[Rfam]
RNA sequence: CUCUUAUCAAGAGUGACGGAGGGAACAGGCCCGAAGAAGUUCGGCAACCACAAGCAAUGCUUGUAAGGUGCUAAAUCCUGCAGACAAGAUCAUGUCUGGAAGAUAAGAG
Dot-bracket structure: ((((((((....(.(((...(((..[[[[)))......))))((((.((((((.......))))..))))))...(]]]]((((((......))))))..)))))))))
RNA: SAM riboswitch aptamer (S box leader)